[Rfam]
RNA: small nucleolar RNA snoR135
RNA sequence: AAGGCAGGAUGGUGUGUAUCGGCGUGAUGCUAUUCUACCAUGCAUUUCUUGCCGAAAGUGAUUCCUGCUAGACCAAUAUUGGGGAAAAUGGGCAGUUGGGAUAAACCCUAAUCUUGGAACCGGUAUCUCGACAAUCAUUUUCCUUACAACC
Number, nucleotide and partner (000 for none) at each position: 001a000002a000003g000004g068005c067006a066007g065008g064009a062010u000011g000012g000013u000014g045015u044016g043017u042018a041019u040020c000021g000022g000023c000024g000025u000026g000027a000028u000029g000030c000031u000032a000033u000034u000035c000036u000037a000038c000039c000040a019041u018042g017043c016044a015045u014046u000047u000048c000049u000050u000051g000052c000053c000054g000055a000056a000057a000058g000059u000060g000061a000062u009063u000064c008065c007066u006067g005068c004069u000070a000071g000072a000073c000074c000075a000076a000077u000078a000079u000080u000081g145082g144083g143084g142085a141086a140087a139088a138089u137090g136091g135092g000093c000094a000095g132096u131097u130098g129099g128100g127101a126102u000103a000104a000105a000106c000107c000108c000109u000110a000111a000112u000113c000114u000115u000116g000117g000118a000119a000120c000121c000122g000123g000124u000125a000126u101127c100128u099129c098130g097131a096132c095133a000134a000135u091136c090137a089138u088139u087140u086141u085142c084143c083144u082145u081146a000147c000148a000149a000150c000151c000